The family of this 146-nucleotide sequence from Malus baccata is "Small nucleolar RNA Z221/R21b".
RNA sequence: GGGCAGUGAUGGUCACCUGAGGAAGUCAUGCACCACUAUGAUGAUUUGAUUUAAUCAAAGGAUAACUAAUGCAAAGGGUUUGAAAACUUUGAGUUUUAAUGAUAAUCUGUGUUGAUAAAUUUCUCGUACCCAAUCCUGCUGAGCCC
Numbered sequence: 001g002g003g004c005a006g007u008g009a010u011g012g013u014c015a016c017c018u019g020a021g022g023a024a025g026u027c028a029u030g031c032a033c034c035a036c037u038a039u040g041a042u043g044a045u046u047u048g049a050u051u052u053a054a055u056c057a058a059a060g061g062a063u064a065a066c067u068a069a070u071g072c073a074a075a076g077g078g079u080u081u082g083a084a085a086a087c088u089u090u091g092a093g094u095u096u097u098a099a100u101g102a103u104a105a106u107c108u109g110u111g112u113u114g115a116u117a118a119a120u121u122u123c124u125c126g127u128a129c130c131c132a133a134u135c136c137u138g139c140u141g142a143g144c145c146c
Stems, first nucleotide, its partner, number of pairs: 001146004
Pairs were carried over by alignment from the consensus structure, which was predicted with WAR.